Rfam assigns this 133-nucleotide sequence from Mauremys mutica to the family "Small nucleolar RNA SNORA70". The organism belongs to Mauremys, within Eukaryota. Gene Ontology terms of the family: RNA processing and nucleolus. Rfam describes the family as follows. snoRNA U70 seems to be exclusive to mammals and is a member of the H/ACA class of snoRNA which contain H (ANANNA) and ACA box motifs.

RNA sequence: CCGCAGCCCACUAAGCCGACCGGCCCACCUGCCGUGGGGGCCCGGUGUGCAAUGGCUGCGCACAGCACCCCCCCUGGUUGUGUACGUGCUCCGUGCCCCGUACGGAGCGCCCUAAGGGACCGCGGGGACAUGG
Numbered sequence: 001c002c003g004c005a006g007c008c009c010a011c012u013a014a015g016c017c018g019a020c021c022g023g024c025c026c027a028c029c030u031g032c033c034g035u036g037g038g039g040g041c042c043c044g045g046u047g048u049g050c051a052a053u054g055g056c057u058g059c060g061c062a063c064a065g066c067a068c069c070c071c072c073c074c075u076g077g078u079u080g081u082g083u084a085c086g087u088g089c090u091c092c093g094u095g096c097c098c099c100g101u102a103c104g105g106a107g108c109g110c111c112c113u114a115a116g117g118g119a120c121c122g123c124g125g126g127g128a129c130a131u132g133g
Stems, first nucleotide, its partner, number of pairs: 003050003019046004025040002028037001076121003087109006